A member of the RNA family "Small nucleolar RNA SNORD58" from Rhynochetos jubatus, 69 nucleotides long. The match comes from Rfam's covariance-model search (66 bits). Its Rfam clan is "SNORD58 clan". Its family is annotated with RNA processing and nucleolus in the Gene Ontology. On this family, see Galardi et al., Mol Cell Biol 2002: "Purified box C/D snoRNPs are able to reproduce site-specific 2'-O-methylation of target RNA in vitro". Rfam classes the family as a C/D-box small nucleolar RNA. Rfam describes the family as follows. snoRNA U58 is found in introns 1, 3 and 6 of the ribosomal protein RPL17 gene in humans. NCBI's taxonomy places the organism under Eukaryota, Gnathostomata, Theropoda, Rhynochetidae, Rhynochetos.
RNA sequence: CGGCGGUGAUGAGUUUCUUAGGACACCUUUGGAUUUAGCGGUGAAAAGAAAGCGUACUUUCUGAGCCGC
Dot-bracket structure: ((((............................................................)))).